[Rfam]
RNA sequence: UGAAGGUGCAGAGCUUAGCUCACUAGUGAGCACUGAGGUAAACCCUGUUGUUCACAGUGGCUAAGUUCAGUGUCUCGC
Numbered sequence: 001u002g003a004a005g006g007u008g009c010a011g012a013g014c015u016u017a018g019c020u021c022a023c024u025a026g027u028g029a030g031c032a033c034u035g036a037g038g039u040a041a042a043c044c045c046u047g048u049u050g051u052u053c054a055c056a057g058u059g060g061c062u063a064a065g066u067u068c069a070g071u072g073u074c075u076c077g078c
Stems, first nucleotide, its partner, number of pairs: 011068010026055007
RNA: mir-27 microRNA precursor family
Organism: Muraenolepis orangiensis